[Rfam]
The family of this 100-nucleotide RNA sequence from Acidaminobacter hydrogenoformans is "SAM riboswitch aptamer (S box leader)".
About the family: The SAM riboswitch is found upstream of a number of genes which code for proteins involved in methionine or cysteine biosynthesis in Gram-positive bacteria.
Its family is annotated with regulation of gene expression in the Gene Ontology.
The match comes from Rfam's covariance-model search (75 bits).
RNA sequence: CACUUAUCCAGAGUGACGGAGGGAACUGGCCCUGUGAAGUCCGGCAACCUGCCCCUGAGGGCGUGGUGCUAAGUCCAGCGGUUUAACCGGGAGAUGAGAU
Numbered sequence: 001c002a003c004u005u006a007u008c009c010a011g012a013g014u015g016a017c018g019g020a021g022g023g024a025a026c027u028g029g030c031c032c033u034g035u036g037a038a039g040u041c042c043g044g045c046a047a048c049c050u051g052c053c054c055c056u057g058a059g060g061g062c063g064u065g066g067u068g069c070u071a072a073g074u075c076c077a078g079c080g081g082u083u084u085a086a087c088c089g090g091g092a093g094a095u096g097a098g099a100u
Stems, first nucleotide, its partner, number of pairs: 003098006013042001015041003021032003026078004043070004048066002051062004074092001079089004